[Rfam]
RNA sequence: CGUGGCACUUUAAGAUUAUAUCACAUCAUCACUUGAAAAUUAAAAAAAUUAUAAAAAUUUUCAGGUGAUGACAUGGUACAAUCUCAUAGUGUCAC
Numbered sequence: 001c002g003u004g005g006c007a008c009u010u011u012a013a014g015a016u017u018a019u020a021u022c023a024c025a026u027c028a029u030c031a032c033u034u035g036a037a038a039a040u041u042a043a044a045a046a047a048a049u050u051a052u053a054a055a056a057a058u059u060u061u062c063a064g065g066u067g068a069u070g071a072c073a074u075g076g077u078a079c080a081a082u083c084u085c086a087u088a089g090u091g092u093c094a095c
Stems, first nucleotide, its partner, number of pairs: 003094007013084005019078005026071016
RNA: MIR8675 microRNA precursor family